BsrC: an 86-nucleotide RNA from Terrihalobacillus insolitus.
Pairs were carried over by alignment from the consensus structure, which was predicted with CMfinder.
The 301 nucleotide sequence from Kouji Nakamura has been trimmed to a highly conserved ~85 nucleotide long core to form this family.
Rfam 15.1 lists 572 matches to the family in 553 species.
Lineage of the source: Bacteria > Bacillota > Bacilli > Caryophanales > Terrihalobacillus.
RNA sequence: UUUACCUACACGACGUAAGCCCUACCUCUCUUACGUCCUUACGACUCCGAAGUCGAUCCAGUGUGAAUAAGUCUUACUGAAAACAU
Numbered sequence: 001u002u003u004a005c006c007u008a009c010a011c012g013a014c015g016u017a018a019g020c021c022c023u024a025c026c027u028c029u030c031u032u033a034c035g036u037c038c039u040u041a042c043g044a045c046u047c048c049g050a051a052g053u054c055g056a057u058c059c060a061g062u063g064u065g066a067a068u069a070a071g072u073c074u075u076a077c078u079g080a081a082a083a084c085a086u
Base pairs, nucleotide, nucleotide: 034065035064038061039060042055043054044053045052046051